[Rfam]
RNA: GlmZ RNA activator of glmS mRNA
Organism: Arsenophonus endosymbiont of Aphis craccivora
RNA sequence: GUAGAUGCUCAUCCUGCUUCUUGUGAUAGCUUUCAGCUUCAUAACCUAUUGGAUGACGCAGAGCCAAUUUGAUGUGCCUAUUGUCCACGUUAUCGAUGCAUAAUAUCAUAUCCAUCACCAACCGGCCGCAACGUUGAGUGAGGCACAAUCCGUCUGUAGAUCUGAUUGUAUUUUGACACCUAUCUUUUGAUAGGUGUUUUUUG
Number, nucleotide and partner (000 for none) at each position: 001g064002u063003a000004g000005a000006u060007g059008c058009u056010c055011a054012u053013c000014c052015u051016g000017c000018u000019u043020c000021u000022u000023g000024u000025g000026a000027u036028a000029g034030c000031u000032u000033u000034c029035a000036g027037c000038u000039u000040c000041a000042u000043a019044a000045c000046c000047u000048a000049u000050u000051g015052g014053a012054u011055g010056a009057c000058g008059c007060a006061g000062a000063g002064c001065c000066a000067a000068u000069u000070u000071g000072a000073u147074g146075u145076g144077c143078c142079u141080a000081u000082u000083g127084u000085c125086c124087a000088c000089g000090u000091u000092a000093u000094c000095g116096a115097u114098g113099c000100a000101u000102a000103a000104u000105a000106u000107c000108a000109u000110a000111u000112c000113c098114a097115u096116c095117a000118c000119c000120a000121a000122c000123c000124g086125g085126c000127c083128g000129c000130a000131a000132c000133g000134u000135u000136g000137a000138g000139u000140g000141a079142g078143g077144c076145a075146c074147a073148a000149u000150c000151c000152g161153u160154c159155u000156g000157u000158a000159g154160a153161u152162c000163u000164g000165a000166u000167u000168g000169u000170a000171u000172u000173u000174u000175g198176a197177c196178a195179c194180c193181u192182a191183u190184c189185u000186u000187u000188u000189g184190a183191u182192a181193g180194g179195u178196g177197u176198u175199u000200u000201u000202u000203g000